[Rfam]
RNA: M-box riboswitch aptamer (ykoK leader)
RNA sequence: UAGAGAACUUGUUAGAUGAGGCUCCUAAAUGAACAUAGGCUAUUGUCCAAAAAUGUCGAGAGACGCCAAUGGGUAAAGCAGGUAGGAUCGGAUUAAGGUCUGCUUAAGAUAGCUGAUUCAGAUGAAUCUACGUCAUUUAGUGCUGAGGCUCAAACCAGCAGGAACAUCA
Numbered sequence: 001u002a003g004a005g006a007a008c009u010u011g012u013u014a015g016a017u018g019a020g021g022c023u024c025c026u027a028a029a030u031g032a033a034c035a036u037a038g039g040c041u042a043u044u045g046u047c048c049a050a051a052a053a054u055g056u057c058g059a060g061a062g063a064c065g066c067c068a069a070u071g072g073g074u075a076a077a078g079c080a081g082g083u084a085g086g087a088u089c090g091g092a093u094u095a096a097g098g099u100c101u102g103c104u105u106a107a108g109a110u111a112g113c114u115g116a117u118u119c120a121g122a123u124g125a126a127u128c129u130a131c132g133u134c135a136u137u138u139a140g141u142g143c144u145g146a147g148g149c150u151c152a153a154a155c156c157a158g159c160a161g162g163a164a165c166a167u168c169a
Base pairs, nucleotide, nucleotide: 005165008162009161010160011155012154013096015150017148020144021143022142025140026139027138028137029136030135031134032133039113040112041111042110043109045074046073047072048071049070054065055064056063057062081104082103083102084101087099088098089097115128116127117126